[Rfam]
RNA sequence: CACGAUUGGUUGACAUGUAGACUGAAAAUACUCAGAAAUUGUGUUGCUAUCAGCUUCCUCUUUCAAAAUUUACGAGAGCGCAGUUAAACUACAACACUAAAUUG
Numbered sequence: 001c002a003c004g005a006u007u008g009g010u011u012g013a014c015a016u017g018u019a020g021a022c023u024g025a026a027a028a029u030a031c032u033c034a035g036a037a038a039u040u041g042u043g044u045u046g047c048u049a050u051c052a053g054c055u056u057c058c059u060c061u062u063u064c065a066a067a068a069u070u071u072a073c074g075a076g077a078g079c080g081c082a083g084u085u086a087a088a089c090u091a092c093a094a095c096a097c098u099a100a101a102u103u104g
Base pairs, nucleotide, nucleotide: 041097042096043095044094045093046092052085053084054083055082057080059077060076061075062074
Annotation: The record is a 104-nucleotide RNA from Papaver nudicaule, which matches "Small nucleolar RNA snoR97" in Rfam. NCBI's taxonomy places the organism under Eukaryota, Viridiplantae, Streptophytina, Embryophyta, Papaver. Its family is annotated with RNA processing and nucleolus in the Gene Ontology. The literature on the family includes a 2002 paper in Curr Biol by Marker et al., "Experimental RNomics: identification of 140 candidates for small non-messenger RNAs in the plant Arabidopsis thaliana".